[Rfam]
RNA sequence: UCUUCCCGGAUCAGGCCCCCACUUAGUGUAUUUGACAAGCUGAGUUUGACACUCUUGUUUCGCUGAGUGUCAGUUUGUCAAAUACCCCAAGUGAGGUGUCACUUUUC
Dot-bracket structure: ...................((((..(.((((((((((((((......((((.((..........)).)))))))))))))))))).)..))))..............
Rfam assigns this 107-nucleotide sequence from Dissostichus mawsoni to the family "mir-223 microRNA precursor family".
The family has 27 seed sequences and 674 matches in Rfam 15.1.
The base pairs follow the family's consensus structure, which was predicted with RNAalifold.